This 121-nucleotide RNA sequence belongs to the Rfam family "LOOT RNA". Rfam's curators put it in the seed alignment. The family's RNA type in Rfam is small RNA.
RNA sequence: AGCCUAACCCCGGUAAGCAAUUGCCGGAUAUGGCUAAAAGACCCAAUGACGACACUGAACCCCACGUUCAGCGACUCGUCAUUGGGCUGCAUCGGGAAACUGAUGUAGGGCCGCAAGGCCU
Numbered sequence: 001a002g003c004c005u006a007a008c009c010c011c012g013g014u015a016a017g018c019a020a021u022u023g024c025c026g027g028a029u030a031u032g033g034c035u036a037a038a039a040g041a042c043c044c045a046a047u048g049a050c051g052a053c054a055c056u057g058a059a060c061c062c063c064a065c066g067u068u069c070a071g072c073g074a075c076u077c078g079u080c081a082u083u084g085g086g087c088u089g090c091a092u093c094g095g096g097a098a099a100c101u102g103a104u105g106u107a108g109g110g111c112c113g114c115a116a117g118g119c120c121u
Stems, first nucleotide, its partner, number of pairs: 001035004010027006042086011053073001055071006088107008108121005